MIR1435 microRNA precursor family: a 200-nucleotide RNA sequence from Triticum aestivum. NCBI's taxonomy places the organism under Eukaryota, Streptophytina, Embryophyta, Poales, Triticum.

[Rfam]
RNA sequence: UAGAGUUGACCGAAGUCAAACUUUGUAAAGUUUGACCAAGUUUGUAGAAAAGAAUAUAAAUAUUUACCCUAACAAAUCUAUAUGAUGCGAAAGUACGUUCAAUAAUGAAUGUAAUGGUAUUGAUUUGUUAUUGUACAUGUUCAUAUUUUUUACUAUAAACUUCGUCAAAAUUUACAAAGCUUGACUUUGACCAAAACUAA
Dot-bracket structure: .....(((..(((((((((.((((((....(((((.........(((.((((..(((.(((((.(((....((((((.............................................))))))....))).))))).)))..)))).))).........)))))....)))))).)))))))))..)))......